[Rfam]
Rfam assigns this 83-nucleotide RNA sequence from Rhamnella rubrinervis to the family "Small nucleolar RNA Z122". It scores 52 bits against the family's covariance model. The family's consensus secondary structure was predicted with PFOLD. The source organism's lineage runs through Eukaryota, Tracheophyta, Spermatophyta, Rosales and Rhamnella. On this family, see Chen et al., Nucleic Acids Res 2003: "The high diversity of snoRNAs in plants: identification and comparative study of 120 snoRNA genes from Oryza sativa".
RNA sequence: UGUGGGAGAUGAUGCAGCUAUGCAAAUUAUCAAAUGCAUCAACAAUGCUGAAUUGUUCAUUUGCAUGUCAGUCUGAUCCCAUU
Numbered sequence: 001u002g003u004g005g006g007a008g009a010u011g012a013u014g015c016a017g018c019u020a021u022g023c024a025a026a027u028u029a030u031c032a033a034a035u036g037c038a039u040c041a042a043c044a045a046u047g048c049u050g051a052a053u054u055g056u057u058c059a060u061u062u063g064c065a066u067g068u069c070a071g072u073c074u075g076a077u078c079c080c081a082u083u
Base pairs, nucleotide, nucleotide: 002082003081004080005079006078007077